RT-18 RNA: an 86-nucleotide RNA sequence.
It is one of the family's seed sequences.
[Rfam]
RNA sequence: CACCCCUUGGUGAAGAUAAGCAAAUUUGGGGAGCGGGUUAGUACACCUCUGCGGAGGCGCUGGAAAGCCCGUACAGCUAAAAGGAG
Numbered sequence: 001c002a003c004c005c006c007u008u009g010g011u012g013a014a015g016a017u018a019a020g021c022a023a024a025u026u027u028g029g030g031g032a033g034c035g036g037g038u039u040a041g042u043a044c045a046c047c048u049c050u051g052c053g054g055a056g057g058c059g060c061u062g063g064a065a066a067g068c069c070c071g072u073a074c075a076g077c078u079a080a081a082a083g084g085a086g
Base pairs, nucleotide, nucleotide: 001012002011003010004009019078020077021076033072034071035070036069037068038067044062045061046057047056048055